[Rfam]
RNA sequence: UGUAACAAUAGAGGAGCAGAUUCAAUGAGUCGUUAAGUUUAGCGUGGUAGCGAUGAGACUUAACAAAAGGUGAAUUUGCCGAAAUAUAACAAACGACCAAAUUUGUUAUAUUGGGCUUGUACUAAAUAAGUAUAAGACUGUCAUUGUCCAUUGUGAACAAUGUUGCGCUAUUGCUUUC
Numbered sequence: 001u002g003u004a005a006c007a008a009u010a011g012a013g014g015a016g017c018a019g020a021u022u023c024a025a026u027g028a029g030u031c032g033u034u035a036a037g038u039u040u041a042g043c044g045u046g047g048u049a050g051c052g053a054u055g056a057g058a059c060u061u062a063a064c065a066a067a068a069g070g071u072g073a074a075u076u077u078g079c080c081g082a083a084a085u086a087u088a089a090c091a092a093a094c095g096a097c098c099a100a101a102u103u104u105g106u107u108a109u110a111u112u113g114g115g116c117u118u119g120u121a122c123u124a125a126a127u128a129a130g131u132a133u134a135a136g137a138c139u140g141u142c143a144u145u146g147u148c149c150a151u152u153g154u155g156a157a158c159a160a161u162g163u164u165g166c167g168c169u170a171u172u173g174c175u176u177u178c
Stems, first nucleotide, its partner, number of pairs: 006173006016079009032064008083112011113139002116136008142162006

This 178-nucleotide RNA sequence from Zophobihabitans entericus belongs to the Rfam family "Lysine riboswitch aptamer". Gene Ontology term of the family: lysine biosynthetic process. Rfam describes the family as follows. Riboswitches are metabolite binding domains within certain messenger RNAs that serve as precision sensors for their corresponding targets. A search with the family's covariance model found it, with a score of 122 bits.